[Rfam]
RNA sequence: GGCAGAUGAUGUCCUUUACUCACAAUGGUCUGCAAGUGCCACCGGGCGCUGCUGAUAAUGCCACAGGCUCAGCUGAUGCCAGGAG
Numbered sequence: 001g002g003c004a005g006a007u008g009a010u011g012u013c014c015u016u017u018a019c020u021c022a023c024a025a026u027g028g029u030c031u032g033c034a035a036g037u038g039c040c041a042c043c044g045g046g047c048g049c050u051g052c053u054g055a056u057a058a059u060g061c062c063a064c065a066g067g068c069u070c071a072g073c074u075g076a077u078g079c080c081a082g083g084a085g
Stems, first nucleotide, its partner, number of pairs: 001080004
Dot-bracket structure: ((((........................................................................)))).....
Background:
This 85-nucleotide RNA from Nannospalax galili belongs to the Rfam family "Small nucleolar RNA SNORD35". It is annotated as a C/D-box small nucleolar RNA. The family is grouped with related families in Rfam's "SNORD35 clan". Rfam 15.1 lists 1,842 matches to the family in 634 species. The literature on the family includes a 1996 paper in J Mol Biol by Nicoloso et al., "Intron-encoded, antisense small nucleolar RNAs: the characterization of nine novel species points to their direct role as guides for the 2'-O-ribose methylation of rRNAs". About the family: U35 is a C/D box snoRNA located in intron 6 of ribosomal protein L13A and intron 3 of ribosomal protein S11 in humans and at homologous positions in mouse and chicken ribosomal protein genes. U35 guides the methylation of 2'-O-ribose sites in 28S rRNA. The organism belongs to Nannospalax, within Eukaryota. A search with the family's covariance model found it, with a score of 72 bits.